RNA sequence: UAAUCAUCCAGAUGACUUGAGAGACCCGGCUCGUCGAGAGUCAGGCAACCGGUUUGCCAUUCGGCGACCACGGUGCCAACGCCGGGAACGAUGAGGA
Numbered sequence: 001u002a003a004u005c006a007u008c009c010a011g012a013u014g015a016c017u018u019g020a021g022a023g024a025c026c027c028g029g030c031u032c033g034u035c036g037a038g039a040g041u042c043a044g045g046c047a048a049c050c051g052g053u054u055u056g057c058c059a060u061u062c063g064g065c066g067a068c069c070a071c072g073g074u075g076c077c078a079a080c081g082c083c084g085g086g087a088a089c090g091a092u093g094a095g096g097a
Stems, first nucleotide, its partner, number of pairs: 001097001004094005013043005021032003026085004044077004049073002051069004081089001
Dot-bracket structure: (..(((((....(((((...(((..[[[[)))......)))))((((.((((((...........))))..))))))...(]]]]...))))))..)